[Rfam]
RNA sequence: UAUUAAAAAUUUCAUCCAUUUCUCUUGUUAAAAACUAGUCCCUGUAGGUUAGUAUAAGGUACACAUGGCCCCUUACGUGUAACCAUCCGGUUAUUCCGUCAACCACGCCAGUUUUUAACAGUAUAAAUGAAUAAAACUUUUAACA
Numbered sequence: 001u002a003u004u005a006a007a008a009a010u011u012u013c014a015u016c017c018a019u020u021u022c023u024c025u026u027g028u029u030a031a032a033a034a035c036u037a038g039u040c041c042c043u044g045u046a047g048g049u050u051a052g053u054a055u056a057a058g059g060u061a062c063a064c065a066u067g068g069c070c071c072c073u074u075a076c077g078u079g080u081a082a083c084c085a086u087c088c089g090g091u092u093a094u095u096c097c098g099u100c101a102a103c104c105a106c107g108c109c110a111g112u113u114u115u116u117a118a119c120a121g122u123a124u125a126a127a128u129g130a131a132u133a134a135a136a137c138u139u140u141u142a143a144c145a
Stems, first nucleotide, its partner, number of pairs: 003143006010136003014132002018128004023123001025121002028118006
Dot-bracket structure: ..((((((.(((.((..((((.(.((.((((((...............................................................................)))))).)).).))))..)).))).))))))..

Record summary
A member of the RNA family "MIR7502 microRNA precursor family" from Gossypium gossypioides, 145 nucleotides long. Rfam links the family to the GO terms RISC complex and miRNA-mediated post-transcriptional gene silencing. A search with the family's covariance model found it, with a score of 78 bits. The family has 6 seed sequences and 74,505 matches in Rfam 15.1. The family's consensus secondary structure was predicted with RNAalifold. The source organism's lineage runs through Eukaryota, Embryophyta, Tracheophyta, Malvaceae and Gossypium.